[Rfam]
RNA sequence: AGCGAGUAAGACAGACUCUUCAGUCUGAUGACAGUGGAAGCGAGUGAACCUAGUACAGCAUGUGGGUUA
Numbered sequence: 001a002g003c004g005a006g007u008a009a010g011a012c013a014g015a016c017u018c019u020u021c022a023g024u025c026u027g028a029u030g031a032c033a034g035u036g037g038a039a040g041c042g043a044g045u046g047a048a049c050c051u052a053g054u055a056c057a058g059c060a061u062g063u064g065g066g067u068u069a
Base pairs, nucleotide, nucleotide: 011035012034014032016030017028018027047068048067049066050065051064052063

Tombus virus defective interfering (DI) RNA region 3: a 69-nucleotide sequence from Punica granatum tombusvirus. This family represents region 3 of the defective interfering (DI) RNA element of the Tombus viruses and is found in the 3' UTR. This family has been found to enhance DI RNA accumulation by approximately 10-fold as well as mediating viral replication. NCBI's taxonomy places the organism under Viruses, Orthornavirae, Tolucaviricetes, Tolivirales, Tombusviridae. Pairs were carried over by alignment from the consensus structure, which is taken from published work.